Rfam assigns this 152-nucleotide RNA from Blautia hydrogenotrophica to the family "Clostridiales-1 RNA".
The family has 194 seed sequences and 1,172 matches in Rfam 15.1.
The source organism's lineage runs through Bacteria, Bacillati, Clostridia, Lachnospirales and Blautia hydrogenotrophica.
The base pairs follow the family's consensus structure, which is taken from published work.

RNA sequence: AUAAGCUUCCGGACAGCGGCUGGUAAACUUGCUUGCCGAGACGUACAGACAUUGGACGGGGUAACAGGUAUGAGCACGCAGGCGUGUACGACGAAGUGCGAAUACCUGUCAGGAUUGCGGGAGUGCGAUGCACGGAGCAAUCUGCAGCUUAU
Numbered sequence: 001a002u003a004a005g006c007u008u009c010c011g012g013a014c015a016g017c018g019g020c021u022g023g024u025a026a027a028c029u030u031g032c033u034u035g036c037c038g039a040g041a042c043g044u045a046c047a048g049a050c051a052u053u054g055g056a057c058g059g060g061g062u063a064a065c066a067g068g069u070a071u072g073a074g075c076a077c078g079c080a081g082g083c084g085u086g087u088a089c090g091a092c093g094a095a096g097u098g099c100g101a102a103u104a105c106c107u108g109u110c111a112g113g114a115u116u117g118c119g120g121g122a123g124u125g126c127g128a129u130g131c132a133c134g135g136a137g138c139a140a141u142c143u144g145c146a147g148c149u150u151a152u
Stems, first nucleotide, its partner, number of pairs: 001152007008060004015053002018050001020048003023036004064109008074099004081092001083090002112143007123133004